ffh sRNA: a 52-nucleotide RNA from Devosia sp. Root413D1. The organism belongs to Devosia, within Bacteria. Pairs were carried over by alignment from the consensus structure, which is taken from published work. By type it is a small RNA. It scores 52 bits against the family's covariance model. On this family, see Meyer et al., BMC Genomics 2009: "Identification of candidate structured RNAs in the marine organism 'Candidatus Pelagibacter ubique'".

RNA sequence: GAUCCCGGAGGCUAACACCCGACAGCGCGAUGCGCCCUCGGGUGGGUUUGGC
Numbered sequence: 001g002a003u004c005c006c007g008g009a010g011g012c013u014a015a016c017a018c019c020c021g022a023c024a025g026c027g028c029g030a031u032g033c034g035c036c037c038u039c040g041g042g043u044g045g046g047u048u049u050g051g052c
Stems, first nucleotide, its partner, number of pairs: 016044007025035004